The family of this 193-nucleotide RNA from Escherichia coli is "Gammaproteobacterial sRNA STnc100". Rfam 15.1 lists 137 matches to the family in 112 species.
RNA sequence: ACAUGCUGAGCGUUUGUUAAAAAAAUUUCGCAUGGUGAAUCCCCCUGUGCGGAGGGGCAAUCAGCAACCAGGUAUAUGUGAUAAUCGCGGAUUCAGGUGCUGAUACUGAAUUCACCGGGAGGCACCCGGCACCAUGCAAGAAAAAGAAUGUGCAUGCAAACAUGCCCCUCUCCGGAGGGGCUUUUUUAUGGGU
Numbered sequence: 001a002c003a004u005g006c007u008g009a010g011c012g013u014u015u016g017u018u019a020a021a022a023a024a025a026u027u028u029c030g031c032a033u034g035g036u037g038a039a040u041c042c043c044c045c046u047g048u049g050c051g052g053a054g055g056g057g058c059a060a061u062c063a064g065c066a067a068c069c070a071g072g073u074a075u076a077u078g079u080g081a082u083a084a085u086c087g088c089g090g091a092u093u094c095a096g097g098u099g100c101u102g103a104u105a106c107u108g109a110a111u112u113c114a115c116c117g118g119g120a121g122g123c124a125c126c127c128g129g130c131a132c133c134a135u136g137c138a139a140g141a142a143a144a145a146g147a148a149u150g151u152g153c154a155u156g157c158a159a160a161c162a163u164g165c166c167c168c169u170c171u172c173c174g175g176a177g178g179g180g181c182u183u184u185u186u187u188a189u190g191g192g193u
Stems, first nucleotide, its partner, number of pairs: 014146002030137008042057005078088003089113004094108003115129005152193002155190001162183001164181006